RNA sequence: UUUCUGGGGACGUGUUGGGGACAGGUGUCCUCGACAGGUUUCCGAGGGGUCCAGUCGCCAGAGAGUGUCGCCCCUGCCUGACGCCCUGGUU
Numbered sequence: 001u002u003u004c005u006g007g008g009g010a011c012g013u014g015u016u017g018g019g020g021a022c023a024g025g026u027g028u029c030c031u032c033g034a035c036a037g038g039u040u041u042c043c044g045a046g047g048g049g050u051c052c053a054g055u056c057g058c059c060a061g062a063g064a065g066u067g068u069c070g071c072c073c074c075u076g077c078c079u080g081a082c083g084c085c086c087u088g089g090u091u
Base pairs, nucleotide, nucleotide: 004088006086008085009084011083012082018075019074020073028064029063030061031060033056034055035054037052
The record is a 91-nucleotide sequence from Dipodomys ordii, which matches "NoRC associated RNA, pRNA" in Rfam. Its family is annotated with chromatin remodeling in the Gene Ontology. The family has 23 seed sequences and 354 matches in Rfam 15.1. A reference for the family is Mayer et al. (2008), "The structure of NoRC-associated RNA is crucial for targeting the chromatin remodelling complex NoRC to the nucleolus", EMBO Rep.